[Rfam]
RNA: U1 spliceosomal RNA
Organism: Diversispora epigaea
RNA sequence: AUACUUACCUGCCAGGACAUGGCCAUGAUCAAAAAGGUGGUCGUGUAGGUGACGGUUACUGGCAUUGCACUAAGCUGGAGGCUGUUGCUUUGAACGCUCCUUAGUGGGUGUCUCAACUGGAUAAUUUUUGGUUGUUGGGGGUGAUUGUGGUUCGCCGUGAUCAUCCCCUU
Number, nucleotide and partner (000 for none) at each position: 001a000002u000003a000004c000005u000006u000007a000008c000009c000010u000011g000012c120013c119014a118015g117016g000017a046018c045019a044020u043021g042022g041023c040024c039025a038026u037027g000028a000029u000030c000031a000032a000033a000034a000035a000036g000037g026038u025039g024040g023041u022042c021043g020044u019045g018046u017047a000048g089049g088050u087051g086052a000053c000054g000055g082056u081057u080058a000059c078060u077061g076062g075063c074064a000065u000066u000067g000068c000069a000070c000071u000072a000073a000074g063075c062076u061077g060078g059079a000080g057081g056082c055083u000084g000085u000086u051087g050088c049089u048090u000091u115092g114093a113094a111095c110096g109097c000098u107099c106100c000101u000102u000103a000104g000105u000106g099107g098108g000109u096110g095111u094112c000113u093114c092115a091116a000117c015118u014119g013120g012121a000122u000123a000124a000125u000126u000127u000128u000129u000130g000131g000132u000133u000134g000135u000136u000137g168138g167139g166140g165141g000142u000143g000144a000145u160146u000147g158148u157149g156150g155151u000152u000153c000154g000155c150156c149157g148158u147159g000160a145161u000162c000163a000164u000165c140166c139167c138168c137169u000170u000